[Rfam]
RNA sequence: AGGCCUGGACAGAGAAGCAAGGUCUGAUCUGUAGCCUCCAUGGCAGCUGUUGAUCAGCCCUUGCUUCUCUCUCUCUGGGUC
Numbered sequence: 001a002g003g004c005c006u007g008g009a010c011a012g013a014g015a016a017g018c019a020a021g022g023u024c025u026g027a028u029c030u031g032u033a034g035c036c037u038c039c040a041u042g043g044c045a046g047c048u049g050u051u052g053a054u055c056a057g058c059c060c061u062u063g064c065u066u067c068u069c070u071c072u073c074u075c076u077g078g079g080u081c
Stems, first nucleotide, its partner, number of pairs: 008073002011070010022059001024057006032049004
mir-574 microRNA precursor family: an 81-nucleotide sequence from Cnephaeus nilssonii. Lineage of the source: Eukaryota > Deuterostomia > Tetrapoda > Vespertilionidae > Cnephaeus. For this family Rfam cites "Patterns of known and novel small RNAs in human cervical cancer" (Lui et al., Cancer Res, 2007). The base pairs follow the family's consensus structure, which was predicted with RNAalifold.